[Rfam]
RNA sequence: CGUUAACGCAAGGAGGCAGACAUGGGACGGACUUAUCCUAUCAAUGUCCUGAUAGUCGGUGCAGCGUUCGUAUUCGUGGUGAGCAUGCUCUUCAUCUGAAGGAGCCUUCAGGUCUCUCAGAUUUUGCAUCCACCACGUUUCAAAAGCCAUUGAAGAGCGCAUGCGCCAGGAGGAGCAUGCGCUCU
Numbered sequence: 001c002g003u004u005a006a007c008g009c010a011a012g013g014a015g016g017c018a019g020a021c022a023u024g025g026g027a028c029g030g031a032c033u034u035a036u037c038c039u040a041u042c043a044a045u046g047u048c049c050u051g052a053u054a055g056u057c058g059g060u061g062c063a064g065c066g067u068u069c070g071u072a073u074u075c076g077u078g079g080u081g082a083g084c085a086u087g088c089u090c091u092u093c094a095u096c097u098g099a100a101g102g103a104g105c106c107u108u109c110a111g112g113u114c115u116c117u118c119a120g121a122u123u124u125u126g127c128a129u130c131c132a133c134c135a136c137g138u139u140u141c142a143a144a145a146g147c148c149a150u151u152g153a154a155g156a157g158c159g160c161a162u163g164c165g166c167c168a169g170g171a172g173g174a175g176c177a178u179g180c181g182c183u184c185u
Base pairs, nucleotide, nucleotide: 015048016047017046018045025039026038154185155184156183157182158181159180160179161178162177163176164175166173167172
Rfam assigns this 185-nucleotide RNA from Neorhizobium lilium to the family "Rhizobiales sRNA Atu_C9".
Lineage of the source: Bacteria > Pseudomonadati > Hyphomicrobiales > Rhizobiaceae > Neorhizobium.
On this family, see Wilms et al., RNA Biol 2012: "Deep sequencing uncovers numerous small RNAs on all four replicons of the plant pathogen Agrobacterium tumefaciens".